[Rfam]
RNA sequence: GGAGAAUUGAGAGGAUCUGUCCCUAGUACGAGAGGACCGGGAUGGACGUACCUCUGGUGGACCUGUUGUGGCGCCAGCCGCAUUGCAGGGUAGCUAUGUACGGAAGGGAUAACCGCUGAAAGCAUCUAAGCGGGAAACCCACCUCAAAACGAGUUCUCCCUGAAGAGCCGUGGAAGACCACCACGUUGAUAGGAAGCGUGUGGAAGUGUGGCAACACAUGAAGCUUAGCUUUACUAAUAGCUCGUUCG
Numbered sequence: 001g002g003a004g005a006a007u008u009g010a011g012a013g014g015a016u017c018u019g020u021c022c023c024u025a026g027u028a029c030g031a032g033a034g035g036a037c038c039g040g041g042a043u044g045g046a047c048g049u050a051c052c053u054c055u056g057g058u059g060g061a062c063c064u065g066u067u068g069u070g071g072c073g074c075c076a077g078c079c080g081c082a083u084u085g086c087a088g089g090g091u092a093g094c095u096a097u098g099u100a101c102g103g104a105a106g107g108g109a110u111a112a113c114c115g116c117u118g119a120a121a122g123c124a125u126c127u128a129a130g131c132g133g134g135a136a137a138c139c140c141a142c143c144u145c146a147a148a149a150c151g152a153g154u155u156c157u158c159c160c161u162g163a164a165g166a167g168c169c170g171u172g173g174a175a176g177a178c179c180a181c182c183a184c185g186u187u188g189a190u191a192g193g194a195a196g197c198g199u200g201u202g203g204a205a206g207u208g209u210g211g212c213a214a215c216a217c218a219u220g221a222a223g224c225u226u227a228g229c230u231u232u233a234c235u236a237a238u239a240g241c242u243c244g245u246u247c248g
Stems, first nucleotide, its partner, number of pairs: 001159008011145004017045007047102005055096003062089005067082006106140003113133005162245001165243004169185005190236003193232005198226001200224001206219005
Annotation: The record is a 248-nucleotide part of an RNA from Roseibium suaedae, which matches "Bacterial large subunit ribosomal RNA" in Rfam. Its family is annotated with structural constituent of ribosome and ribosome in the Gene Ontology.